[Rfam]
RNA: Small nucleolar RNA U83B
Organism: Egretta garzetta
RNA sequence: GCUGCUCAGUGAUGAGGCAUGGAACAAACCCUGAGCGGUAUCUGACACCCAUGGGGAGCGGGCUCUGCGGGGCAUCGCUUCUGGGAGCAGC
Dot-bracket structure: (((((.................................................................................)))))